This 179-nucleotide sequence from Bombilactobacillus mellis belongs to the Rfam family "Lysine riboswitch aptamer". The match comes from Rfam's covariance-model search (96 bits). NCBI's taxonomy places the organism under Bacteria, Bacillati, Bacillota, Lactobacillaceae, Bombilactobacillus. Rfam describes the family as follows. Riboswitches are metabolite binding domains within certain messenger RNAs that serve as precision sensors for their corresponding targets.
RNA sequence: AUAAAUCGAAGAGGUCGCAACCGACAAAAGUAACUAGUGGAAUUUCUGCAAGAAUGAAGAAGCUAGUGAAAGGGGAAGUUGCCGAAGCGUUAAUUAUUGCAGUAGUUAAUUAGCUGGGACGUAGUUGAAGAGAUUACGGACUGUCGCAAAUUUAAAUUUGCGGAGCGCUAUCGACAAAA
Numbered sequence: 001a002u003a004a005a006u007c008g009a010a011g012a013g014g015u016c017g018c019a020a021c022c023g024a025c026a027a028a029a030g031u032a033a034c035u036a037g038u039g040g041a042a043u044u045u046c047u048g049c050a051a052g053a054a055u056g057a058a059g060a061a062g063c064u065a066g067u068g069a070a071a072g073g074g075g076a077a078g079u080u081g082c083c084g085a086a087g088c089g090u091u092a093a094u095u096a097u098u099g100c101a102g103u104a105g106u107u108a109a110u111u112a113g114c115u116g117g118g119a120c121g122u123a124g125u126u127g128a129a130g131a132g133a134u135u136a137c138g139g140a141c142u143g144u145c146g147c148a149a150a151u152u153u154a155a156a157u158u159u160g161c162g163g164a165g166c167g168c169u170a171u172c173g174a175c176a177a178a179a
Base pairs, nucleotide, nucleotide: 006174007173008172009171010169011168017082018081019080020079021078025074033067034066035065036064037063038062086115087114088113089110090109091108092107093106094105095104116142117141120138121137122136123135124134125133126132144163145162146161147160148159149158150157